[Rfam]
RNA sequence: AAGUUAAUAAGAGCUUAACCGUAGACAGCAGGUGAUUUAUGCUUAAAGAGAUUAUAAAAUCUCGCCUGCCGAGGUUGUGAGAAGUUAAAGAGAAGUAUAAAAGGCCUCACUGUGUCUACGGGGGGCCUUUUAUUAAUUGUCG
Number, nucleotide and partner (000 for none) at each position: 001a000002a000003g000004u000005u000006a000007a000008u000009a000010a000011g000012a000013g000014c000015u000016u000017a000018a000019c000020c000021g000022u000023a000024g000025a000026c000027a000028g069029c068030a067031g066032g065033u064034g042035a000036u000037u000038u000039a000040u000041g000042c034043u000044u000045a000046a000047a000048g000049a000050g000051a000052u000053u000054a000055u000056a000057a000058a000059a000060u000061c000062u000063c000064g033065c032066c031067u030068g029069c028070c000071g000072a000073g000074g000075u000076u000077g000078u000079g000080a000081g000082a000083a000084g000085u000086u000087a000088a000089a000090g000091a000092g000093a000094a000095g000096u000097a000098u000099a000100a000101a000102a000103g127104g126105c125106c124107u123108c122109a000110c121111u120112g119113u000114g000115u000116c000117u000118a000119c112120g111121g110122g108123g107124g106125g105126c104127c103128u000129u000130u000131u000132a000133u000134u000135a000136a000137u000138u000139g000140u000141c000142g000